[Rfam]
RNA sequence: AUCUUGAAAACGCUGAAUCGUUUGAACGGGGGACCCGAUCGAAGGGGUGAAUCUCUUUACUGAGUAGGGCAAUCAAUCUGCCCGAAUCCGUCAGCUAACCUCGUAAGCGUCGAUUGAGGAGGAUU
Numbered sequence: 001a002u003c004u005u006g007a008a009a010a011c012g013c014u015g016a017a018u019c020g021u022u023u024g025a026a027c028g029g030g031g032g033a034c035c036c037g038a039u040c041g042a043a044g045g046g047g048u049g050a051a052u053c054u055c056u057u058u059a060c061u062g063a064g065u066a067g068g069g070c071a072a073u074c075a076a077u078c079u080g081c082c083c084g085a086a087u088c089c090g091u092c093a094g095c096u097a098a099c100c101u102c103g104u105a106a107g108c109g110u111c112g113a114u115u116g117a118g119g120a121g122g123a124u125u
Stems, first nucleotide, its partner, number of pairs: 011109004018025002026104006036044001045089003053064003067083004
The record is a 125-nucleotide RNA sequence from Brevibacillus fulvus, which matches "c-di-AMP riboswitch aptamer (ydaO/yuaA leader)" in Rfam. The match comes from Rfam's covariance-model search (93 bits). NCBI's taxonomy places the organism under Bacteria, Bacillati, Caryophanales, Paenibacillaceae, Brevibacillus.